[Rfam]
RNA sequence: UAUCCCGCGAGGGCGUGUGGGGAGGAAGCCGUAGCCGAACUGCAGCACCGAACGUAAGUGAACCCUCAAACGGGCUUCUCGGACCUGGGUUAGCGUGCCUUCCAGCGCGACGCCCGAUAUCCGUUGGUGGCCGAGGAGUAGUGAGGGCGGAGGCGGCAGGACAUUGUUCGAU
Numbered sequence: 001u002a003u004c005c006c007g008c009g010a011g012g013g014c015g016u017g018u019g020g021g022g023a024g025g026a027a028g029c030c031g032u033a034g035c036c037g038a039a040c041u042g043c044a045g046c047a048c049c050g051a052a053c054g055u056a057a058g059u060g061a062a063c064c065c066u067c068a069a070a071c072g073g074g075c076u077u078c079u080c081g082g083a084c085c086u087g088g089g090u091u092a093g094c095g096u097g098c099c100u101u102c103c104a105g106c107g108c109g110a111c112g113c114c115c116g117a118u119a120u121c122c123g124u125u126g127g128u129g130g131c132c133g134a135g136g137a138g139u140a141g142u143g144a145g146g147g148c149g150g151a152g153g154c155g156g157c158a159g160g161a162c163a164u165u166g167u168u169c170g171a172u
Stems, first nucleotide, its partner, number of pairs: 004013003028172001030170002040159004045154001046152001048150003063147006074139003078135005084130001087115004093108004